A member of the RNA family "Bacterial large subunit ribosomal RNA" from Clostridiaceae bacterium 14S0207, 557 nucleotides of a longer RNA. The organism belongs to Clostridiaceae, within Bacteria.
RNA sequence: UAGAAAGGGCGCAUGGCGAAUGCCUUGGCACCAGGAGCCGAUGAAGGACGUGAUAAGCUGCGAUAAGCUGUGGGUAGCCGCACAUAGGUUGUGAUCCACAGAUUUCCGAAUGAGGGAACUCACAUACCUUAACGGUAUGUAUCUUAAACUGAAUAAAUAGGUUUAGGAGGGUAAACCCGGGGAACUGAAACAUCUAAGUACCCGGAGGAAGAGAAAGAAAAAUCGAUUUUCUAAGUAGCGGCGAGCGAAAGGGAAAGAGCCCAAACCAGAGAUUUAUCUCUGGGGUUGCGGACAGACAAUAACGAUUAAACUAUUUUAGCUGAAGAGGUUUGGAAAGACCCACCGUAGGAGGUAAUAGUCCUGUAAGCGAAAGAACAGUUUAAUUAAGUCUGAUCCAGAGUACCACGAGACACGUGAAACCUUGUGGGAAGCAGGGAGGACCACCUCCCAAGGCUAAAUACUACCUGGUGACCGAUAGUGAAGAAGUACCGUGAGGGAAAGGUGAAAAGAACCCCGGGAGGGGAGUGAAAUAGAACCUGAAACCGUGUGCCUACAAU
Numbered sequence: 001u002a003g004a005a006a007g008g009g010c011g012c013a014u015g016g017c018g019a020a021u022g023c024c025u026u027g028g029c030a031c032c033a034g035g036a037g038c039c040g041a042u043g044a045a046g047g048a049c050g051u052g053a054u055a056a057g058c059u060g061c062g063a064u065a066a067g068c069u070g071u072g073g074g075u076a077g078c079c080g081c082a083c084a085u086a087g088g089u090u091g092u093g094a095u096c097c098a099c100a101g102a103u104u105u106c107c108g109a110a111u112g113a114g115g116g117a118a119c120u121c122a123c124a125u126a127c128c129u130u131a132a133c134g135g136u137a138u139g140u141a142u143c144u145u146a147a148a149c150u151g152a153a154u155a156a157a158u159a160g161g162u163u164u165a166g167g168a169g170g171g172u173a174a175a176c177c178c179g180g181g182g183a184a185c186u187g188a189a190a191c192a193u194c195u196a197a198g199u200a201c202c203c204g205g206a207g208g209a210a211g212a213g214a215a216a217g218a219a220a221a222a223u224c225g226a227u228u229u230u231c232u233a234a235g236u237a238g239c240g241g242c243g244a245g246c247g248a249a250a251g252g253g254a255a256a257g258a259g260c261c262c263a264a265a266c267c268a269g270a271g272a273u274u275u276a277u278c279u280c281u282g283g284g285g286u287u288g289c290g291g292a293c294a295g296a297c298a299a300u301a302a303c304g305a306u307u308a309a310a311c312u313a314u315u316u317u318a319g320c321u322g323a324a325g326a327g328g329u330u331u332g333g334a335a336a337g338a339c340c341c342a343c344c345g346u347a348g349g350a351g352g353u354a355a356u357a358g359u360c361c362u363g364u365a366a367g368c369g370a371a372a373g374a375a376c377a378g379u380u381u382a383a384u385u386a387a388g389u390c391u392g393a394u395c396c397a398g399a400g401u402a403c404c405a406c407g408a409g410a411c412a413c414g415u416g417a418a419a420c421c422u423u424g425u426g427g428g429a430a431g432c433a434g435g436g437a438g439g440a441c442c443a444c445c446u447c448c449c450a451a452g453g454c455u456a457a458a459u460a461c462u463a464c465c466u467g468g469u470g471a472c473c474g475a476u477a478g479u480g481a482a483g484a485a486g487u488a489c490c491g492u493g494a495g496g497g498a499a500a501g502g503u504g505a506a507a508a509g510a511a512c513c514c515c516g517g518g519a520g521g522g523g524a525g526u527g528a529a530a531u532a533g534a535a536c537c538u539g540a541a542a543c544c545g546u547g548u549g550c551c552u553a554c555a556a557u
Stems, first nucleotide, its partner, number of pairs: 007552010022537001023502002027473002029470007036462002038171002046107003049062003068101007077089003112121003122140007142168009176207001177205005187194002217224002227458001228255005238246002258455004266283007290396002293392005305384008314375004319368003325341001327340004344348001350362003403427007434449005489496002512523004